[Rfam]
RNA sequence: AGAGUCCCACAGGAAAGGAAUAGCGAACCACCUGGCCUCGAGUCUUGCGGGGCGCGUCGUGAGGCGCGAGUCGAAGCGUAGACAGAGGUAUCAGUGGGCUGGGUAUUGAGCUUCGAGAAUGAAUUCUGGGAUGCCGACCCUGUGGACGUUAGGGGAAGGCUACACGCCGGCAGUCGAUAGCGCGAGACCUCCGGUGAUCCCACGUAGUCGUAGACCC
Numbered sequence: 001a002g003a004g005u006c007c008c009a010c011a012g013g014a015a016a017g018g019a020a021u022a023g024c025g026a027a028c029c030a031c032c033u034g035g036c037c038u039c040g041a042g043u044c045u046u047g048c049g050g051g052g053c054g055c056g057u058c059g060u061g062a063g064g065c066g067c068g069a070g071u072c073g074a075a076g077c078g079u080a081g082a083c084a085g086a087g088g089u090a091u092c093a094g095u096g097g098g099c100u101g102g103g104u105a106u107u108g109a110g111c112u113u114c115g116a117g118a119a120u121g122a123a124u125u126c127u128g129g130g131a132u133g134c135c136g137a138c139c140c141u142g143u144g145g146a147c148g149u150u151a152g153g154g155g156a157a158g159g160c161u162a163c164a165c166g167c168c169g170g171c172a173g174u175c176g177a178u179a180g181c182g183c184g185a186g187a188c189c190u191c192c193g194g195u196g197a198u199c200c201c202a203c204g205u206a207g208u209c210g211u212a213g214a215c216c217c
Stems, first nucleotide, its partner, number of pairs: 010034004017029002021185001023183002036088004042083004046078002048073003053068006108209001110208003114204002127202006133160003138154004165196006173188003
Dot-bracket structure: .........((((...((..[.[[...)).)))).((((..(((((((((..((((((....))))))..)))...)).)))).))))...................(.(((.((...........(((((((((..((((.........))))...)))....((((((..(((......]].])))..)))))))))))))).))))........
A member of the RNA family "Group II catalytic intron D1-D4-6" from Paludibaculum fermentans, 217 nucleotides long. On this family, see Chu et al., EMBO J 2001: "Control of branch-site choice by a group II intron". Rfam describes the family as follows. Group II introns are found in rRNA, tRNA and mRNA of organelles in fungi, plants and protists, and also in mRNA in bacteria. Pairs were carried over by alignment from the consensus structure. Its family is annotated with Group II intron splicing in the Gene Ontology.